[Rfam]
RNA sequence: ACACGAGGAAGGAGGUGGUCCCAGACAUGAACGACUGUUGGACACGUGAGGUGGCUGCCAGCUAGCCGCCACCGCUGACGGCAUUCACUGACCGCGCGAGCGGCUGGCGAAUUCCAGGCAGCCACCCGGCCCCCGAGCCCGAUCCGUCCACGAUCGGCCCGCACUCGCCCCGACACGGGCGGUCGCGGGAACGGCUCGGGGGCCGUUCCCU
Numbered sequence: 001a002c003a004c005g006a007g008g009a010a011g012g013a014g015g016u017g018g019u020c021c022c023a024g025a026c027a028u029g030a031a032c033g034a035c036u037g038u039u040g041g042a043c044a045c046g047u048g049a050g051g052u053g054g055c056u057g058c059c060a061g062c063u064a065g066c067c068g069c070c071a072c073c074g075c076u077g078a079c080g081g082c083a084u085u086c087a088c089u090g091a092c093c094g095c096g097c098g099a100g101c102g103g104c105u106g107g108c109g110a111a112u113u114c115c116a117g118g119c120a121g122c123c124a125c126c127c128g129g130c131c132c133c134c135g136a137g138c139c140c141g142a143u144c145c146g147u148c149c150a151c152g153a154u155c156g157g158c159c160c161g162c163a164c165u166c167g168c169c170c171c172g173a174c175a176c177g178g179g180c181g182g183u184c185g186c187g188g189g190a191a192c193g194g195c196u197c198g199g200g201g202g203c204c205g206u207u208c209c210c211u
Base pairs, nucleotide, nucleotide: 014059015058016057017056018055019054061108062107063106064105065104066103068101069100073096074095075094127205128204129203130202131201132200133199134198135197136196137195138194139193